[Rfam]
RNA sequence: AGGUCUCUCUUGUUGGACCAGAUAGAGCCUAGGAGCUCUCUGGCUAGCAAAAGAACCCAC
Numbered sequence: 001a002g003g004u005c006u007c008u009c010u011u012g013u014u015g016g017a018c019c020a021g022a023u024a025g026a027g028c029c030u031a032g033g034a035g036c037u038c039u040c041u042g043g044c045u046a047g048c049a050a051a052a053g054a055a056c057c058c059a060c
Base pairs, nucleotide, nucleotide: 002057003056004055006054007053008052010050011049012048013047014046015045016044018043019042020041021040022039025038026037027036028035